[Rfam]
RNA: Small Cajal body specific RNA 8
Organism: Fukomys damarensis
RNA sequence: UGAGAGGCAGAUACACAAAUUGGGCUGAAAUGCUACUCUGUCACUAUACCUUCCUCGAAUAAAUUACCUUUUGAUGGCCAAGAGAGAUUGAGUGAAAUUGUAAUGGACAGAUAUGAGGCAGACAAUU
Numbered sequence: 001u002g003a004g005a006g007g008c009a010g011a012u013a014c015a016c017a018a019a020u021u022g023g024g025c026u027g028a029a030a031u032g033c034u035a036c037u038c039u040g041u042c043a044c045u046a047u048a049c050c051u052u053c054c055u056c057g058a059a060u061a062a063a064u065u066a067c068c069u070u071u072u073g074a075u076g077g078c079c080a081a082g083a084g085a086g087a088u089u090g091a092g093u094g095a096a097a098u099u100g101u102a103a104u105g106g107a108c109a110g111a112u113a114u115g116a117g118g119c120a121g122a123c124a125a126u127u
Base pairs, nucleotide, nucleotide: 002054004052005051006050007049015041016040022038023037024036064121065120067118068117069116070115078106079105080104083101085099086098